This 174-nucleotide RNA from Nitrospirillum viridazoti belongs to the Rfam family "Group II catalytic intron D1-D4-3". A search with the family's covariance model found it, with a score of 140 bits. Group II introns are found in rRNA, tRNA and mRNA of organelles in fungi, plants and protists, and also in mRNA in bacteria. Pairs were carried over by alignment from the consensus structure.
[Rfam]
RNA sequence: GUCACCGCGAGGUGGUGUCUGGAGGAAGCUGUAAGCAAAGUGCCGGCCUGACGAACAGGAACCGCAUAUGAGGCGUCCGCAUCCGGGCGAGGGUGCAAAGGCCCCCGAAGCCCGAUAUCACCCGGAGGGUGCGGGCGUAGAUGCGGCGGGUAUAUGGCAUGGAGGUCACGCGUC
Numbered sequence: 001g002u003c004a005c006c007g008c009g010a011g012g013u014g015g016u017g018u019c020u021g022g023a024g025g026a027a028g029c030u031g032u033a034a035g036c037a038a039a040g041u042g043c044c045g046g047c048c049u050g051a052c053g054a055a056c057a058g059g060a061a062c063c064g065c066a067u068a069u070g071a072g073g074c075g076u077c078c079g080c081a082u083c084c085g086g087g088c089g090a091g092g093g094u095g096c097a098a099a100g101g102c103c104c105c106c107g108a109a110g111c112c113c114g115a116u117a118u119c120a121c122c123c124g125g126a127g128g129g130u131g132c133g134g135g136c137g138u139a140g141a142u143g144c145g146g147c148g149g150g151u152a153u154a155u156g157g158c159a160u161g162g163a164g165g166u167c168a169c170g171c172g173u174c
Base pairs, nucleotide, nucleotide: 001016002015003014004013005012006011028174030172031171032170035166036165040160041159042158043157044156045155046151047150048149049148050147062146063145064144065143066142067141073138074137075136077134078133079132080131081130082129083128085113086112087111088110091106092105093104
Dot-bracket structure: ((((((....))))))...........(.(((..((...(((((((((((...........((((((.....(((.(((((((.((((..(((..........)))...))))..............))))))).)))..)))))))))))...))))))....))...))).)